[Rfam]
RNA sequence: UUUUGGCUUAGUUAAGAGGCAUAUAGUAAUGGGGCUUUUAAUGAAGCUCACUCGGGCCUUUUGAGGGGAAUCCAUUUUCUUGAUACCAUGGCUUCCCCCAAGCAGCCUUGGAAAUUU
Dot-bracket structure: ...((.(((......))).))............(((((....)))))...((.((((..((((.((((((.((................)).))))))))))..)))).))......
RNA: Small nucleolar RNA U19
Organism: Carex littledalei